This 131-nucleotide RNA sequence from Heliothis virescens belongs to the Rfam family "U4atac minor spliceosomal RNA". U4atac is an essential component of the minor U12-type spliceosome complex which is required for removal of the rarer class of eukaryotic introns (AT-AC, U12-type).
RNA sequence: ACUUUCCUUGUCUCGGGGAGCAUAGUGCGCAGUGAUCGUAAAGUGAGAGCACUUAUGCUGACACCCACAAGUUUAUCUUGUAUACCCGCGCCCGGCUGCCGCAAGGGAGUCCGAGCGCAAUUUUUGAAAUG
Numbered sequence: 001a002c003u004u005u006c007c008u009u010g011u012c013u014c015g016g017g018g019a020g021c022a023u024a025g026u027g028c029g030c031a032g033u034g035a036u037c038g039u040a041a042a043g044u045g046a047g048a049g050c051a052c053u054u055a056u057g058c059u060g061a062c063a064c065c066c067a068c069a070a071g072u073u074u075a076u077c078u079u080g081u082a083u084a085c086c087c088g089c090g091c092c093c094g095g096c097u098g099c100c101g102c103a104a105g106g107g108a109g110u111c112c113g114a115g116c117g118c119a120a121u122u123u124u125u126g127a128a129a130u131g
Base pairs, nucleotide, nucleotide: 005019006018007017008016009015020058021057022056023055024053025052026051027050028049030047037043088118089117090116091115093113094110097107099106100105
The family's consensus secondary structure is taken from published work.